This 175-nucleotide RNA sequence from Shewanella mangrovi belongs to the Rfam family "Lysine riboswitch aptamer". Pairs were carried over by alignment from the consensus structure, which is taken from published work. The match comes from Rfam's covariance-model search (96 bits).
RNA sequence: GGAAACAGAAGAGGAGCGCCUACUAGGUAGUGAGUUUGAGGAUACCAAUAUCCAAUGACAACUCACGAGGGAGAUAGGCGCCGAGGUUAACGCGAGAUUGGUAUGGCGUUCACCGGUUGGUCAGGCUGAAUCCUGACGACUGUCACCGUAUUUUUGGUGGAGAGCUUCUGGUGUG
Numbered sequence: 001g002g003a004a005a006c007a008g009a010a011g012a013g014g015a016g017c018g019c020c021u022a023c024u025a026g027g028u029a030g031u032g033a034g035u036u037u038g039a040g041g042a043u044a045c046c047a048a049u050a051u052c053c054a055a056u057g058a059c060a061a062c063u064c065a066c067g068a069g070g071g072a073g074a075u076a077g078g079c080g081c082c083g084a085g086g087u088u089a090a091c092g093c094g095a096g097a098u099u100g101g102u103a104u105g106g107c108g109u110u111c112a113c114c115g116g117u118u119g120g121u122c123a124g125g126c127u128g129a130a131u132c133c134u135g136a137c138g139a140c141u142g143u144c145a146c147c148g149u150a151u152u153u154u155u156g157g158u159g160g161a162g163a164g165c166u167u168c169u170g171g172u173g174u175g
Stems, first nucleotide, its partner, number of pairs: 006170006016081007024073001030066007085114003089110005095104001115141004120137006143160006